RNA sequence: GGUGUUGAAGUGGCUCGCGCGAUCUCCUAUAUCUCGAUUGUUCUCUUUCGGGGGGACUAUGGCAAUAAACGCGCGCGUAAUAAGCGGAUCGGACCCGGGGGCGGUACCCGGCGGCUCCACCAACACAUCCUGUCAUUUGCAGGGGCUUGGGGCCGAAACAGGAUAGACGGACGUCUAAAGGUGUUAGCUUUUGCUCGGCAGGAUGCCACCGUUAUCGGCUCGAAUUGUACAGUUGCAAAUGACAACAGUGCUCCGGUUGCAGUCGCUGCGUAAGCAGUGCCGAAUACCGAAACUUAAGUCCUAGGGCCUAGCAGCCUUAGGCGGGGUUCGCAGGCACCUGGCAACAGAAGCCUGCACU
Number, nucleotide and partner (000 for none) at each position: 001g000002g000003u000004g000005u000006u000007g000008a000009a000010g000011u000012g000013g000014c000015u000016c000017g000018c000019g000020c000021g000022a000023u000024c000025u000026c000027c000028u000029a000030u000031a000032u000033c000034u000035c000036g000037a000038u000039u000040g057041u056042u055043c054044u053045c052046u051047u000048u000049c000050g000051g046052g045053g044054g043055g042056a041057c040058u000059a000060u000061g195062g194063c193064a192065a191066u000067a000068a000069a000070c000071g188072c187073g184074c183075g182076c181077g000078u000079a000080a000081u000082a000083a000084g000085c173086g172087g000088a000089u170090c169091g168092g000093a000094c000095c111096c110097g109098g108099g107100g000101g000102c000103g000104g000105u000106a000107c099108c098109c097110g096111g095112c155113g154114g153115c152116u151117c150118c149119a000120c000121c000122a000123a000124c000125a000126c000127a000128u000129c000130c000131u000132g000133u000134c000135a000136u000137u000138u000139g000140c000141a000142g000143g000144g000145g000146c000147u000148u000149g118150g117151g116152g115153c114154c113155g112156a000157a000158a000159c000160a000161g000162g000163a000164u000165a000166g000167a000168c091169g090170g089171a000172c086173g085174u000175c000176u000177a000178a000179a000180g000181g076182u075183g074184u073185u000186a000187g072188c071189u000190u000191u065192u064193g063194c062195u061196c211197g210198g209199c000200a000201g000202g221203a220204u000205g219206c218207c217208a000209c198210c197211g196212u000213u000214a000215u000216c000217g207218g206219c205220u203221c202222g000223a000224a000225u000226u000227g000228u000229a000230c000231a000232g000233u000234u000235g000236c000237a000238a000239a000240u000241g000242a000243c000244a000245a000246c000247a000248g000249u000250g000251c000252u000253c000254c000255g000256g000257u000258u000259g000260c000261a000262g000263u000264c000265g000266c000267u000268g000269c000270g000271u000272a000273a000274g000275c000276a000277g000278u000279g000280c000281c000282g000283a000284a000285u000286a000287c000288c000289g000290a000291a000292a000293c000294u000295u000296a000297a000298g000299u000300c000301c000302u000303a000304g000305g000306g000307c000308c000309u000310a000311g000312c000313a000314g000315c000316c000317u000318u000319a000320g000321g000322c000323g000324g339325g338326g337327u336328u000329c000330g355331c354332a353333g352334g351335c350336a327337c326338c325339u324340g000341g000342c000343a000344a000345c000346a000347g000348a000349a000350g335351c334352c333353u332354g331355c330356a000357c000358u000
The family of this 358-nucleotide RNA from Rubricella aquisinus is "Alphaproteobacteria transfer-messenger RNA". Bacterial tmRNA, also known as 10Sa RNA or SsrA, is named for its dual tRNA and mRNA-like properties. Its role is to liberate the mRNA from a stalled ribosome. It scores 297 bits against the family's covariance model. Taxonomically the source falls in Rubricella (Bacteria, Pseudomonadota, Rhodobacterales, Paracoccaceae).